Shown here is a 109-nucleotide RNA sequence from Pogona vitticeps, a member of the family "Small nucleolar RNA U6-53/MBII-28". The literature on the family includes a 2001 paper in EMBO J by Huttenhofer et al., "RNomics: an experimental approach that identifies 201 candidates for novel, small, non-messenger RNAs in mouse". The family has 25 seed sequences and 780 matches in Rfam 15.1. Pairs were carried over by alignment from the consensus structure.
RNA sequence: CACCCAUGAUGACACGCCAUGCUAAUACCGAGGCACCGAGCGGAGCCAUCGGCUCCGAAUUCGGGUGUCGUUGAGUUAAGCUGACUUCUCACGGGAAGGCCUGAGGUGU
Numbered sequence: 001c002a003c004c005c006a007u008g009a010u011g012a013c014a015c016g017c018c019a020u021g022c023u024a025a026u027a028c029c030g031a032g033g034c035a036c037c038g039a040g041c042g043g044a045g046c047c048a049u050c051g052g053c054u055c056c057g058a059a060u061u062c063g064g065g066u067g068u069c070g071u072u073g074a075g076u077u078a079a080g081c082u083g084a085c086u087u088c089u090c091a092c093g094g095g096a097a098g099g100c101c102u103g104a105g106g107u108g109u
Stems, first nucleotide, its partner, number of pairs: 001108004041057005

A search with the family's covariance model found it, with a score of 81 bits. It is annotated as a C/D-box small nucleolar RNA. NCBI's taxonomy places the organism under Eukaryota, Chordata, Vertebrata, Bifurcata, Pogona.